[Rfam]
RNA sequence: ACUGGUCACUUGGGGGCCAUAGCAGAAGUGUUCACAUCAUGACUCAUGUGAGGUAAUAACUGGUAAUAUCUGUGUAUUCUGGU
Numbered sequence: 001a002c003u004g005g006u007c008a009c010u011u012g013g014g015g016g017c018c019a020u021a022g023c024a025g026a027a028g029u030g031u032u033c034a035c036a037u038c039a040u041g042a043c044u045c046a047u048g049u050g051a052g053g054u055a056a057u058a059a060c061u062g063g064u065a066a067u068a069u070c071u072g073u074g075u076a077u078u079c080u081g082g083u
Stems, first nucleotide, its partner, number of pairs: 014045003018041001021083001023081005028040003051071005

Rfam assigns this 83-nucleotide RNA sequence from Alligator mississippiensis to the family "Mammalian CPEB3 ribozyme". The base pairs follow the family's consensus structure, which is taken from published work. For this family Rfam cites "A genomewide search for ribozymes reveals an HDV-like sequence in the human CPEB3 gene" (Salehi-Ashtiani et al., Science, 2006).